[Rfam]
RNA sequence: UUACCUCUCCCUCGGGAGAGGUCGAAAUCUACUGAUUUCGGGUGAGGGC
Numbered sequence: 001u002u003a004c005c006u007c008u009c010c011c012u013c014g015g016g017a018g019a020g021g022u023c024g025a026a027a028u029c030u031a032c033u034g035a036u037u038u039c040g041g042g043u044g045a046g047g048g049c
Stems, first nucleotide, its partner, number of pairs: 004021007024039006
Description:
Shown here is a 49-nucleotide RNA sequence from Parvularcula maris, a member of the family "Whalefall-1 RNA". NCBI's taxonomy places the organism under Bacteria, Pseudomonadati, Alphaproteobacteria, Parvularculales, Parvularcula. Rfam classes the family as a small RNA. The family's consensus secondary structure is taken from published work.